[Rfam]
RNA sequence: AGAAACACAAGGAAUUGAAGAGUAGCUUUAAUGCAAGUCAAAACAGAGAGUUUAUGGUUGGUGCAAAUAAACAAGAGGCGCUUAAAGUGAAGAUGGUCAAGGAGUGGCACAGGUGAAAGGCAGUAGCUUGUGACGGCAGCACCCGUUAACGUGAUAGAGUAUAACUGAUGAUUCAGCGUACUUGAUGAGAUAUUGUUUGUGAGAACAAUAUGAACCUGGGUGGUAACACGAUAACUCGUCCCUAUA
Numbered sequence: 001a002g003a004a005a006c007a008c009a010a011g012g013a014a015u016u017g018a019a020g021a022g023u024a025g026c027u028u029u030a031a032u033g034c035a036a037g038u039c040a041a042a043a044c045a046g047a048g049a050g051u052u053u054a055u056g057g058u059u060g061g062u063g064c065a066a067a068u069a070a071a072c073a074a075g076a077g078g079c080g081c082u083u084a085a086a087g088u089g090a091a092g093a094u095g096g097u098c099a100a101g102g103a104g105u106g107g108c109a110c111a112g113g114u115g116a117a118a119g120g121c122a123g124u125a126g127c128u129u130g131u132g133a134c135g136g137c138a139g140c141a142c143c144c145g146u147u148a149a150c151g152u153g154a155u156a157g158a159g160u161a162u163a164a165c166u167g168a169u170g171a172u173u174c175a176g177c178g179u180a181c182u183u184g185a186u187g188a189g190a191u192a193u194u195g196u197u198u199g200u201g202a203g204a205a206c207a208a209u210a211u212g213a214a215c216c217u218g219g220g221u222g223g224u225a226a227c228a229c230g231a232u233a234a235c236u237c238g239u240c241c242c243u244a245u246a
Stems, first nucleotide, its partner, number of pairs: 007105002015100004025088006039075001050072006108132007134145003190211007218242003228239004
The record is a 246-nucleotide RNA from Dielma fastidiosa, which matches "T-box leader" in Rfam. It scores 114 bits against the family's covariance model. Taxonomically the source falls in Dielma (Bacteria, Bacillota, Erysipelotrichia, Erysipelotrichales). Pairs were carried over by alignment from the consensus structure, which is taken from published work. By type it is a cis-regulatory leader.